[Rfam]
RNA sequence: UCGUUAAUUCAUUAACUUCCAAGGCCUUACACAAGACCUAGUGGACAAUUUUUGGAGACCCUAUCUAGCCGUGAUAGGGUG
Numbered sequence: 001u002c003g004u005u006a007a008u009u010c011a012u013u014a015a016c017u018u019c020c021a022a023g024g025c026c027u028u029a030c031a032c033a034a035g036a037c038c039u040a041g042u043g044g045a046c047a048a049u050u051u052u053u054g055g056a057g058a059c060c061c062u063a064u065c066u067a068g069c070c071g072u073g074a075u076a077g078g079g080u081g
Base pairs, nucleotide, nucleotide: 022039023038024037026035027034028033058080059079060078061077062076063075064074065073
Rfam assigns this 81-nucleotide RNA from Caenorhabditis elegans to the family "SmY spliceosomal RNA".
The match comes from Rfam's covariance-model search (70 bits).
The literature on the family includes a 2007 paper in BMC Mol Biol by Jia et al., "Systematic identification of non-coding RNA 2,2,7-trimethylguanosine cap structures in Caenorhabditis elegans".
The organism belongs to Caenorhabditis, within Eukaryota.
Rfam classes the family as a spliceosomal small nuclear RNA.
The family has 61 seed sequences and 408 matches in Rfam 15.1.